[Rfam]
RNA sequence: AAGAGUGCCCAACUCCGAAGCCUCUGGCUCUAAGUGACCCAUGUCAUACGAGCCUUUGGCCGCAGCCAAUGCUGCCGGGUCUGCGCGGGAAACCGUCUGGCCUCUCGCGAUUAGAAAGGAGCCAGCUUGUGCGCUUA
Numbered sequence: 001a002a003g004a005g006u007g008c009c010c011a012a013c014u015c016c017g018a019a020g021c022c023u024c025u026g027g028c029u030c031u032a033a034g035u036g037a038c039c040c041a042u043g044u045c046a047u048a049c050g051a052g053c054c055u056u057u058g059g060c061c062g063c064a065g066c067c068a069a070u071g072c073u074g075c076c077g078g079g080u081c082u083g084c085g086c087g088g089g090a091a092a093c094c095g096u097c098u099g100g101c102c103u104c105u106c107g108c109g110a111u112u113a114g115a116a117a118g119g120a121g122c123c124a125g126c127u128u129g130u131g132c133g134c135u136u137a
Base pairs, nucleotide, nucleotide: 004130013121014120015119016118020060021059022058026054027053028052029051030050034047035046036045037044062075063074064073065072066071078103079102081100082099083098085096086095087094088093104114105113
RNA: Molybdenum/Tungsten riboswitch aptamer (Moco RNA motif)
Organism: Kordiimonas lacus